[Rfam]
RNA sequence: CUGCAGUGCAGCACUGCGUGUAUUUGACAAGCUGAGUUUGACACUCAGUCUGGCAGAGUGUCAGUUUGUCAAAUACCCCAAGUGAGGCACUUGCUGAG
Numbered sequence: 001c002u003g004c005a006g007u008g009c010a011g012c013a014c015u016g017c018g019u020g021u022a023u024u025u026g027a028c029a030a031g032c033u034g035a036g037u038u039u040g041a042c043a044c045u046c047a048g049u050c051u052g053g054c055a056g057a058g059u060g061u062c063a064g065u066u067u068g069u070c071a072a073a074u075a076c077c078c079c080a081a082g083u084g085a086g087g088c089a090c091u092u093g094c095u096g097a098g
Stems, first nucleotide, its partner, number of pairs: 012084004018078001020076014040062004045057002
This 98-nucleotide RNA from Gallus gallus belongs to the Rfam family "mir-223 microRNA precursor family". Pairs were carried over by alignment from the consensus structure, which was predicted with RNAalifold. A reference for the family is Lim et al. (2003), "Vertebrate microRNA genes", Science. Lineage of the source: Eukaryota > Metazoa > Gnathostomata > Sarcopterygii > Gallus.